[Rfam]
RNA: RNA Staph. aureus E (RoxS)
RNA sequence: GUGAAAUUAAUCACAAACAAACAUUUACCCCUUUGUUUGACCGUGAAAAAUUUCUCCCAUCCCCUUUGUUGUCGUUAAGACAUACAGAAGACUCCGUAUUACCCGUGCGGAGUCUUUUU
Numbered sequence: 001g002u003g004a005a006a007u008u009a010a011u012c013a014c015a016a017a018c019a020a021a022c023a024u025u026u027a028c029c030c031c032u033u034u035g036u037u038u039g040a041c042c043g044u045g046a047a048a049a050a051u052u053u054c055u056c057c058c059a060u061c062c063c064c065u066u067u068g069u070u071g072u073c074g075u076u077a078a079g080a081c082a083u084a085c086a087g088a089a090g091a092c093u094c095c096g097u098a099u100u101a102c103c104c105g106u107g108c109g110g111a112g113u114c115u116u117u118u119u
Stems, first nucleotide, its partner, number of pairs: 003054006011046004018039006070084001073079001088116011